[Rfam]
RNA: Potassium channel RNA editing signal
Organism: Oncorhynchus kisutch
Nucleotides: 116
Base pairs, nucleotide, nucleotide: 002115004113007112009110010109011108012107013106015104016103017102020099021098023097024096039079040078042076051065052064
Number, partner (000 for none) and nucleotide at each position: 001000u002115u003000u004113g005000c006000a007112g008000a009110u010109a011108c012107g013106g014000u015104g016103a017102c018000a019000u020099g021098g022000u023097a024096c025000c026000c027000a028000a029000g030000a031000c032000c033000a034000u035000u036000g037000u038000g039079g040078g041000g042076a043000a044000g045000g046000u047000g048000u049000u050000u051065g052064g053000u054000u055000c056000c057000a058000u059000c060000u061000g062000u063000u064052c065051u066000c067000u068000g069000a070000g071000c072000g073000g074000g075000g076042u077000g078040c079039u080000g081000g082000u083000c084000a085000u086000c087000g088000c089000c090000c091000u092000g093000c094000c095000c096024g097023u098021u099020c100000c101000c102017g103016u104015c105000a106013u107012c108011g109010u110009g111000u112007c113004c114000a115002a116000c